[Rfam]
Nucleotides: 078
Stems, first nucleotide, its partner, number of pairs: 002077001004075007012067005019060003023056002026053003030049003
Number, partner (000 for none) and nucleotide at each position: 001000a002077c003000c004075u005074g006073u007072g008071g009070g010069a011000a012067a013066g014065g015064u016063c017000c018000a019060a020059c021058c022000u023056c024055a025000c026053a027052u028051g029000u030049c031048c032047u033000g034000u035000a036000u037000a038000g039000a040000a041000u042000a043000a044000g045000g046000a047032g048031g049030g050000a051028u052027a053026u054000a055024u056023g057000u058021g059020g060019u061000c062000a063016g064015a065014c066013c067012u068000a069010u070009c071008c072007c073006a074005c075004a076000g077002g078000c
The record is a 78-nucleotide RNA sequence from Gallus gallus, which matches "mir-2188 microRNA precursor family" in Rfam. Gene Ontology terms of the family: RISC complex and miRNA-mediated post-transcriptional gene silencing. The source organism's lineage runs through Eukaryota, Eumetazoa, Coelurosauria, Aves and Gallus. The base pairs follow the family's consensus structure, which was predicted with RNAalifold.